[Rfam]
RNA sequence: UACCAAUGAUGGAAUUCAAAUAAUCAUCAGAUCUGAUGUGUUAUACAUACAUGAUUACAAUCUUGACGCUGAGGUA
Numbered sequence: 001u002a003c004c005a006a007u008g009a010u011g012g013a014a015u016u017c018a019a020a021u022a023a024u025c026a027u028c029a030g031a032u033c034u035g036a037u038g039u040g041u042u043a044u045a046c047a048u049a050c051a052u053g054a055u056u057a058c059a060a061u062c063u064u065g066a067c068g069c070u071g072a073g074g075u076a
Stems, first nucleotide, its partner, number of pairs: 001076004
This 76-nucleotide RNA sequence from Arabidopsis lyrata belongs to the Rfam family "Small nucleolar RNA snoR124". Rfam 15.1 lists 25 matches to the family in 14 species. On this family, see Chen and Wu, Nucleic Acids Res 2009: "Mining small RNA sequencing data: a new approach to identify small nucleolar RNAs in Arabidopsis". NCBI's taxonomy places the organism under Eukaryota, Euphyllophyta, rosids, Brassicaceae, Arabidopsis lyrata. Gene Ontology terms of the family: RNA processing and nucleolus.